Overview
This 179-nucleotide RNA sequence from Oryza meridionalis belongs to the Rfam family "MIR807 microRNA precursor family". Rfam 15.1 lists 1,514 matches to the family in 13 species.
RNA sequence: AACCACAUUAUCAAUGAAUGGAUUCACCUGUGAGAUGACGUGGUUGUUUCACCUAGGAUGAUGAUGUGGCAUCCUAUUAAUUUCUUGCAAUGGCUGAUAAUUAUAGGAUGCCACGUCCUUAUCCUAAGUGGAACAGCCAUAUCAUAUCAUGGGUGAAUCCAUUCAUUGAUAGUGGGAUU
Numbered sequence: 001a002a003c004c005a006c007a008u009u010a011u012c013a014a015u016g017a018a019u020g021g022a023u024u025c026a027c028c029u030g031u032g033a034g035a036u037g038a039c040g041u042g043g044u045u046g047u048u049u050c051a052c053c054u055a056g057g058a059u060g061a062u063g064a065u066g067u068g069g070c071a072u073c074c075u076a077u078u079a080a081u082u083u084c085u086u087g088c089a090a091u092g093g094c095u096g097a098u099a100a101u102u103a104u105a106g107g108a109u110g111c112c113a114c115g116u117c118c119u120u121a122u123c124c125u126a127a128g129u130g131g132a133a134c135a136g137c138c139a140u141a142u143c144a145u146a147u148c149a150u151g152g153g154u155g156a157a158u159c160c161a162u163u164c165a166u167u168g169a170u171a172g173u174g175g176g177a178u179u
Stems, first nucleotide, its partner, number of pairs: 001179002004176001006174002009171007017163003021159008030150004035145004041139008051129002054126002057123002063117003069111009079101001085100003
Taxonomically the source falls in Oryza (Eukaryota, Tracheophyta, Liliopsida, Poaceae).